[Rfam]
RNA sequence: AAAAUCGCGCAAAUUCUAUAUAUUGCAGAGAUCAUGUAGGCCU
Numbered sequence: 001a002a003a004a005u006c007g008c009g010c011a012a013a014u015u016c017u018a019u020a021u022a023u024u025g026c027a028g029a030g031a032u033c034a035u036g037u038a039g040g041c042c043u
Stems, first nucleotide, its partner, number of pairs: 005029002009026004